This 46-nucleotide RNA sequence from Stegastes partitus belongs to the Rfam family "Histone 3' UTR stem-loop".
The match comes from Rfam's covariance-model search (39 bits).
The mRNAs of metazoan histone genes lack a poly-A tail. 3' end processing occurs at a site between a highly conserved stem-loop (modelled by this family) and a purine rich region around 20 nts downstream (the histone downstream element, or HDE). The stem-loop is bound by a 31 kDa stem-loop binding protein (SLBP - also termed the histone hairpin binding protein, or HBP). Together with U7 snRNA binding of the HDE, SLBP binding nucleate s the formation of the processing complex.
Taxonomically the source falls in Stegastes (Eukaryota, Deuterostomia, Chordata, Pomacentridae).
RNA sequence: CCAACGGCUCUUUUCAGAGCCACACACUGCAUCUGUAGAGCUCCAU
Numbered sequence: 001c002c003a004a005c006g007g008c009u010c011u012u013u014u015c016a017g018a019g020c021c022a023c024a025c026a027c028u029g030c031a032u033c034u035g036u037a038g039a040g041c042u043c044c045a046u
Stems, first nucleotide, its partner, number of pairs: 006021006